[Rfam]
RNA sequence: UGCAGUACCUGCACCCAGCAGCCUUUUCCUGUGGGAUGUUCAAGAAGCAGUGCUACACCAGUGCAGCAUUUGGCAUCCUUGGUUUUCAUUCUGCUGUGUCUGUUAAACCUGGUAUUUUUGCUGAAACAGUC
Number, nucleotide and partner (000 for none) at each position: 001u049002g048003c000004a000005g000006u000007a000008c000009c047010u046011g039012c038013a037014c000015c035016c034017a000018g032019c031020a030021g029022c000023c000024u000025u000026u000027u000028c000029c021030u020031g019032u018033g000034g016035g015036a000037u013038g012039u011040u000041c000042a000043a000044g000045a000046a010047g009048c002049a001050g000051u000052g000053c000054u000055a000056c120057a119058c000059c000060a116061g115062u114063g000064c111065a110066g109067c000068a000069u000070u000071u000072g100073g099074c098075a097076u096077c000078c000079u000080u000081g000082g000083u000084u000085u000086u000087c000088a000089u000090u000091c000092u000093g000094c000095u000096g076097u075098g074099u073100c072101u000102g000103u000104u000105a000106a000107a000108c000109c066110u065111g064112g000113u000114a062115u061116u060117u000118u000119u057120g056121c000122u000123g000124a000125a000126a000127c000128a000129g000130u000131c000
Background:
The record is a 131-nucleotide sequence from Leucopsar rothschildi, which matches "Small nucleolar RNA SNORA8" in Rfam. Lineage of the source: Eukaryota > Chordata > Dipnotetrapodomorpha > Passeriformes > Leucopsar. By type it is an H/ACA-box small nucleolar RNA. It scores 66 bits against the family's covariance model. The base pairs follow the family's consensus structure, which was predicted with RNAfold. ACA8 is a member of the H/ACA class of snoRNA that guide the sites of modification of uridines to pseudouridines.